[Rfam]
Rfam assigns this 207-nucleotide RNA from Oryza glumipatula to the family "MIR812 microRNA precursor family". The match comes from Rfam's covariance-model search (127 bits). Rfam links the family to the GO terms miRNA-mediated post-transcriptional gene silencing and RISC complex.

RNA sequence: AAUAAGUGCAGCCGUGGAUAUCCGUAUCCAACGUUUGACCAUCCGUCUUAUUUAAAAAAUUUAUGAAAAAUUUAAAAAUAUUUAGUCACACAUAAAGUACUAUUCAUGUUUUAUCAUCUAAUAGCAAUAAAAAUACUAAUCAUAAAAACUUUUCAAAUAAGACGAACGGUCAAACGUUGAAUGUGAAUAGUACAAACUACACUUAUU
Number, nucleotide and partner (000 for none) at each position: 001a000002a000003u000004a000005a000006g000007u000008g000009c000010a000011g000012c000013c000014g000015u000016g000017g000018a000019u000020a000021u000022c000023c000024g000025u000026a000027u181028c000029c179030a178031a177032c176033g000034u174035u173036u172037g171038a170039c169040c168041a000042u166043c000044c164045g163046u162047c161048u160049u159050a158051u157052u000053u000054a000055a000056a000057a000058a000059a000060u000061u000062u000063a000064u000065g000066a000067a000068a000069a000070a000071u000072u000073u000074a000075a000076a000077a000078a000079u000080a000081u000082u000083u000084a000085g000086u000087c000088a000089c000090a000091c000092a000093u000094a000095a000096a000097g000098u000099a000100c000101u000102a000103u000104u000105c000106a000107u000108g000109u000110u000111u000112u000113a000114u000115c000116a000117u000118c000119u000120a000121a000122u000123a000124g000125c000126a000127a000128u000129a000130a000131a000132a000133a000134u000135a000136c000137u000138a000139a000140u000141c000142a000143u000144a000145a000146a000147a000148a000149c000150u000151u000152u000153u000154c000155a000156a000157a051158u050159a049160a048161g047162a046163c045164g044165a000166a042167c000168g040169g039170u038171c037172a036173a035174a034175c000176g032177u031178u030179g029180a000181a027182u000183g000184u000185g000186a000187a000188u000189a000190g000191u000192a000193c000194a000195a000196a000197c000198u000199a000200c000201a000202c000203u000204u000205a000206u000207u000